[Rfam]
RNA sequence: CUUUACAGUUCCUGCAUUGUACACACUGUGUGUAUCAGUUCCGCAUGCACAGCGCAUACAAUGUGGAUGCUGUGCUG
Numbered sequence: 001c002u003u004u005a006c007a008g009u010u011c012c013u014g015c016a017u018u019g020u021a022c023a024c025a026c027u028g029u030g031u032g033u034a035u036c037a038g039u040u041c042c043g044c045a046u047g048c049a050c051a052g053c054g055c056a057u058a059c060a061a062u063g064u065g066g067a068u069g070c071u072g073u074g075c076u077g
Stems, first nucleotide, its partner, number of pairs: 012066002015063007024054001026052006

Record summary
Shown here is a 77-nucleotide sequence from Megalops atlanticus, a member of the family "mir-460 microRNA precursor family". A reference for the family is Chen et al. (2005), "The developmental miRNA profiles of zebrafish as determined by small RNA cloning", Genes Dev. The match comes from Rfam's covariance-model search (87 bits). Pairs were carried over by alignment from the consensus structure, which was predicted with RNAalifold.